[Rfam]
The family of this 72-nucleotide RNA sequence from Ochotona princeps is "Small nucleolar RNA SNORD99".
A reference for the family is Huttenhofer et al. (2001), "RNomics: an experimental approach that identifies 201 candidates for novel, small, non-messenger RNAs in mouse", EMBO J.
The base pairs follow the family's consensus structure, which was predicted with RNAalifold.
The organism belongs to Ochotona, within Eukaryota.

RNA sequence: GCUGGUCCAGGAUGAAUCCUACUGAGUGGACAUCUGUGGAUGAGCAGUGCGGAUAUGGGACUGAGACCAGCG
Number, nucleotide and partner (000 for none) at each position: 001g071002c070003u069004g068005g067006u000007c000008c000009a000010g000011g000012a000013u000014g000015a000016a000017u000018c000019c000020u000021a000022c000023u000024g000025a000026g000027u000028g000029g000030a000031c000032a000033u000034c000035u000036g000037u000038g000039g000040a000041u000042g000043a000044g000045c000046a000047g000048u000049g000050c000051g000052g000053a000054u000055a000056u000057g000058g000059g000060a000061c000062u000063g000064a000065g000066a000067c005068c004069a003070g002071c001072g000
The family has 23 seed sequences and 673 matches in Rfam 15.1. The sequence is in the family's curated seed alignment. The family's RNA type in Rfam is C/D-box small nucleolar RNA. Its family is annotated with nucleolus and RNA processing in the Gene Ontology.